[Rfam]
RNA sequence: CUUCUCUUCUCAACAACGGAUCUGUGGCCCAGCUCGACCCGGUGUCUUUCAGGCACUCGGGCUCAGUUGCGGUCAGCACGACAAAAUCAUCCUUAUGGAGCCGCUUCUUCACUUCCGUAGCGUCAAUUUCCAGUCGGCAGAUCCGUGAGCAAUGCCCUGCGCGUCGUCUUGCCUGAGUCUUUCCUCUCUUUCCGUUCCUACCGCCGGCGAGACUUCUCUAAAAAGUAGCCUUGAUGCCUCUUCGUGAGGCAUCGGUGAGCUCGUCGGCGAAGGACGGGGAGAACAUGGGGGAAGAUGAGAGGCGAUGCUAGGGGUGGGCGUCAUAUUCCUGAGCCUUUUCGUCGAUCGUCGAUCACUGACGUCUGGGACAAACCAUGAUGCAUACAAAU
Numbered sequence: 001c002u003u004c005u006c007u008u009c010u011c012a013a014c015a016a017c018g019g020a021u022c023u024g025u026g027g028c029c030c031a032g033c034u035c036g037a038c039c040c041g042g043u044g045u046c047u048u049u050c051a052g053g054c055a056c057u058c059g060g061g062c063u064c065a066g067u068u069g070c071g072g073u074c075a076g077c078a079c080g081a082c083a084a085a086a087u088c089a090u091c092c093u094u095a096u097g098g099a100g101c102c103g104c105u106u107c108u109u110c111a112c113u114u115c116c117g118u119a120g121c122g123u124c125a126a127u128u129u130c131c132a133g134u135c136g137g138c139a140g141a142u143c144c145g146u147g148a149g150c151a152a153u154g155c156c157c158u159g160c161g162c163g164u165c166g167u168c169u170u171g172c173c174u175g176a177g178u179c180u181u182u183c184c185u186c187u188c189u190u191u192c193c194g195u196u197c198c199u200a201c202c203g204c205c206g207g208c209g210a211g212a213c214u215u216c217u218c219u220a221a222a223a224a225g226u227a228g229c230c231u232u233g234a235u236g237c238c239u240c241u242u243c244g245u246g247a248g249g250c251a252u253c254g255g256u257g258a259g260c261u262c263g264u265c266g267g268c269g270a271a272g273g274a275c276g277g278g279g280a281g282a283a284c285a286u287g288g289g290g291g292a293a294g295a296u297g298a299g300a301g302g303c304g305a306u307g308c309u310a311g312g313g314g315u316g317g318g319c320g321u322c323a324u325a326u327u328c329c330u331g332a333g334c335c336u337u338u339u340c341g342u343c344g345a346u347c348g349u350c351g352a353u354c355a356c357u358g359a360c361g362u363c364u365g366g367g368a369c370a371a372a373c374c375a376u377g378a379u380g381c382a383u384a385c386a387a388a389u
Stems, first nucleotide, its partner, number of pairs: 018144008026074004030069005036062001038060002041057002044054003082136001084134001092133002096125003100121002155312002161308006177296004184291005318381007334367003340361002344354004